[Rfam]
Nucleotides: 042
Stems, first nucleotide, its partner, number of pairs: 015032006
Number, partner (000 for none) and nucleotide at each position: 001000g002000a003000u004000u005000u006000a007000u008000g009000u010000u011000u012000a013000a014000c015032g016031c017030c018029c019028g020027g021000c022000u023000a024000a025000c026000a027020c028019c029018g030017g031016g032015c033000c034000u035000u036000a037000c038000g039000g040000a041000a042000g
Notes
A member of the RNA family "nuoG RNA" from Erwinia tracheiphila, 42 nucleotides long. It scores 33 bits against the family's covariance model. Pairs were carried over by alignment from the consensus structure, which is taken from published work. Rfam classes the family as a cis-regulatory element.